RNA sequence: AUAAAACUUCGGGGUUGGGUGAGAUUCCCUACCGGCGGUAUAGUCCGCGAGCUUUGAUAGCAUGAACCGGUGUGAUUCCGGUACCGACAGUAAAGUCUGGAUGGAAGAAGGAUAUG
Numbered sequence: 001a002u003a004a005a006a007c008u009u010c011g012g013g014g015u016u017g018g019g020u021g022a023g024a025u026u027c028c029c030u031a032c033c034g035g036c037g038g039u040a041u042a043g044u045c046c047g048c049g050a051g052c053u054u055u056g057a058u059a060g061c062a063u064g065a066a067c068c069g070g071u072g073u074g075a076u077u078c079c080g081g082u083a084c085c086g087a088c089a090g091u092a093a094a095g096u097c098u099g100g101a102u103g104g105a106a107g108a109a110g111g112a113u114a115u116g
Base pairs, nucleotide, nucleotide: 004113007110008109009108010107017029018028019027031096032095033086034085035048036047037046038045043084044083053060066082067081068080069079070078088099089098090097
RNA: FMN riboswitch aptamer (RFN element)